[Rfam]
RNA sequence: CCAGUCGAACCCGAUGUUCCACAGGAGUGGUCCUAGAACAGAGCCCUGCGGAACACCGGACUCGACGCG
Numbered sequence: 001c002c003a004g005u006c007g008a009a010c011c012c013g014a015u016g017u018u019c020c021a022c023a024g025g026a027g028u029g030g031u032c033c034u035a036g037a038a039c040a041g042a043g044c045c046c047u048g049c050g051g052a053a054c055a056c057c058g059g060a061c062u063c064g065a066c067g068c069g
Stems, first nucleotide, its partner, number of pairs: 004066003007061001010059002013056001015055006024049001026047002029045003033041002
Annotation: Shown here is a 69-nucleotide sequence from Spodoptera exigua, a member of the family "mir-3389 microRNA precursor family". The family's consensus secondary structure was predicted with RNAalifold. Taxonomically the source falls in Spodoptera (Eukaryota, Eumetazoa, Panarthropoda, Eumetabola). Its family is annotated with RISC complex and miRNA-mediated post-transcriptional gene silencing in the Gene Ontology.